RNA sequence: UGUCCCUGGUCUGGGCAGAGUGGCAUCUGGCUGGUGGUGCCCAUCUCAUAUCAGCCAGGGACAAAGCAAACCCUCGUGUAUCCCAGCGUGGCUUUUGGUCAGUGCCCAUGCCUGGUUCAUGCCUUGGACACAUGG
Numbered sequence: 001u002g003u004c005c006c007u008g009g010u011c012u013g014g015g016c017a018g019a020g021u022g023g024c025a026u027c028u029g030g031c032u033g034g035u036g037g038u039g040c041c042c043a044u045c046u047c048a049u050a051u052c053a054g055c056c057a058g059g060g061a062c063a064a065a066g067c068a069a070a071c072c073c074u075c076g077u078g079u080a081u082c083c084c085a086g087c088g089u090g091g092c093u094u095u096u097g098g099u100c101a102g103u104g105c106c107c108a109u110g111c112c113u114g115g116u117u118c119a120u121g122c123c124u125u126g127g128a129c130a131c132a133u134g135g
Base pairs, nucleotide, nucleotide: 001063002062003061004060005059006058007057008056011054012053013052014051018047019046020045022041023040024039025038026037027036076129077128079126080125090123091122092121096119097118098117100115102113104111105110
Dot-bracket structure: ((((((((..((((...(((.((((((........))))))...)))...)))).))))))))............((.((.........(((...(((.(.(.((....)).).).))).))).)).))......
Background:
Small nucleolar RNA SNORA48: a 135-nucleotide sequence from Tupaia belangeri. Its Rfam clan is "SNORA48 clan". A reference for the family is Ofengand and Bakin (1997), "Mapping to nucleotide resolution of pseudouridine residues in large subunit ribosomal RNAs from representative eukaryotes, prokaryotes, archaebacteria, mitochondria and chloroplasts", J Mol Biol. Rfam classes the family as an H/ACA-box small nucleolar RNA. Rfam describes the family as follows. The snoRNA ACA 48 has been identified to guide pseudouridylation of the residue U3797 in the 28S rRNA subunit.